[Rfam]
RNA sequence: UGAGUUAGCCAGGCGGCCGCGUGAACCAAUGGUUCCCGAGGAACGUCCGGGCUCCACAGGGAACGGUGGUGGAUAACGUCCACUCGGGGUGACCCGCAGGCCAGUGCCACAGAAAGUAAACCGCCGUUAAGGUAAGGGUGAAAGGGUGAGGUAAGAGCUCACCGCGUCGCGAGUGAUCGAGACGGCAUGGUAAACCCCACCGGGAGCAAGACCGAGCAGCGUGCGUUGAGGCGUCCCGUCGAGCACGCGGGUAGGUUGCUUGAGCUUAUCGGUAACGGUAAGCCUAGAUGGAUGGUCGCCACGCUUGCACUAUGCGAGCGGACAAAACCCGGCGUAUCGGCUAACUCAUUCG
Numbered sequence: 001u002g003a004g005u006u007a008g009c010c011a012g013g014c015g016g017c018c019g020c021g022u023g024a025a026c027c028a029a030u031g032g033u034u035c036c037c038g039a040g041g042a043a044c045g046u047c048c049g050g051g052c053u054c055c056a057c058a059g060g061g062a063a064c065g066g067u068g069g070u071g072g073a074u075a076a077c078g079u080c081c082a083c084u085c086g087g088g089g090u091g092a093c094c095c096g097c098a099g100g101c102c103a104g105u106g107c108c109a110c111a112g113a114a115a116g117u118a119a120a121c122c123g124c125c126g127u128u129a130a131g132g133u134a135a136g137g138g139u140g141a142a143a144g145g146g147u148g149a150g151g152u153a154a155g156a157g158c159u160c161a162c163c164g165c166g167u168c169g170c171g172a173g174u175g176a177u178c179g180a181g182a183c184g185g186c187a188u189g190g191u192a193a194a195c196c197c198c199a200c201c202g203g204g205a206g207c208a209a210g211a212c213c214g215a216g217c218a219g220c221g222u223g224c225g226u227u228g229a230g231g232c233g234u235c236c237c238g239u240c241g242a243g244c245a246c247g248c249g250g251g252u253a254g255g256u257u258g259c260u261u262g263a264g265c266u267u268a269u270c271g272g273u274a275a276c277g278g279u280a281a282g283c284c285u286a287g288a289u290g291g292a293u294g295g296u297c298g299c300c301a302c303g304c305u306u307g308c309a310c311u312a313u314g315c316g317a318g319c320g321g322a323c324a325a326a327a328c329c330c331g332g333c334g335u336a337u338c339g340g341c342u343a344a345c346u347c348a349u350u351c352g
Base pairs, nucleotide, nucleotide: 001348002347003346004345005344006343007342008341009340010339011337012300013299014298015297016296017295018294020038021037023035024034025033026032027031043335044334045333047332048331049330050329051328052206053205054204055203059237060236061235062234064202065201066200067199068198069083070082071081072080073079084098085096086095087094088093099197100196104195105194106191107190108189121137122136123133124132125131145163146162147161148160149159150158164186165184166183167182168181170179171178172177210257211256212255213254219248220247221246222245223244224243230240231239232238264283265282266281267280268279269278270277271276

The family of this 352-nucleotide RNA from Arcanobacterium haemolyticum is "Bacterial RNase P class A".
Lineage of the source: Bacteria > Actinomycetota > Actinomycetes > Arcanobacterium > Arcanobacterium haemolyticum.
Its family is annotated with tRNA processing, ribonuclease P activity and dimeric ribonuclease P complex in the Gene Ontology.